[Rfam]
RNA: tRNA
RNA sequence: AAGAUAUUAGUAAAAUCAAUUACAUAACUUUGUCAAAGUUAAAUUAUAGAUCAAUAAUCUAUAUAUCUUA
Numbered sequence: 001a002a003g004a005u006a007u008u009a010g011u012a013a014a015a016u017c018a019a020u021u022a023c024a025u026a027a028c029u030u031u032g033u034c035a036a037a038g039u040u041a042a043a044u045u046a047u048a049g050a051u052c053a054a055u056a057a058u059c060u061a062u063a064u065a066u067c068u069u070a
Stems, first nucleotide, its partner, number of pairs: 001069007010023004025041005046062005